[Rfam]
RNA sequence: GCGCAUGCGCAGACGAGCGCUACUCGGUGACCGAGACUGAGCAUAUCGCCAAUCAGUCAGGUACCUGAAGUAGCGCGCGUUUUCCACGCGA
Numbered sequence: 001g002c003g004c005a006u007g008c009g010c011a012g013a014c015g016a017g018c019g020c021u022a023c024u025c026g027g028u029g030a031c032c033g034a035g036a037c038u039g040a041g042c043a044u045a046u047c048g049c050c051a052a053u054c055a056g057u058c059a060g061g062u063a064c065c066u067g068a069a070g071u072a073g074c075g076c077g078c079g080u081u082u083u084c085c086a087c088g089c090g091a
Base pairs, nucleotide, nucleotide: 009084011082012081014079017076018075019074020073021072022071030062031061032060035058036057037056038055

Record summary: mir-275 microRNA precursor family: a 91-nucleotide sequence from Apolygus lucorum. NCBI's taxonomy places the organism under Eukaryota, Opisthokonta, Cimicomorpha, Miridae, Apolygus.